[Rfam]
RNA sequence: GCCAUCUUCGGAGAUGGCAUGCCUCCGUGAACCGCCCGGGUCGGCCGGGCUGAUGAUGCCUACCAGACU
Numbered sequence: 001g002c003c004a005u006c007u008u009c010g011g012a013g014a015u016g017g018c019a020u021g022c023c024u025c026c027g028u029g030a031a032c033c034g035c036c037c038g039g040g041u042c043g044g045c046c047g048g049g050c051u052g053a054u055g056a057u058g059c060c061u062a063c064c065a066g067a068c069u
Stems, first nucleotide, its partner, number of pairs: 010026004016060005034050006
About this RNA:
Shown here is a 69-nucleotide RNA from Caldimonas caldifontis, a member of the family "Fluoride riboswitch aptamer (crcB RNA motif)". The match comes from Rfam's covariance-model search (52 bits). The source organism's lineage runs through Bacteria, Pseudomonadati, Pseudomonadota, Betaproteobacteria and Caldimonas. The family has 289 seed sequences and 2,293 matches in Rfam 15.1.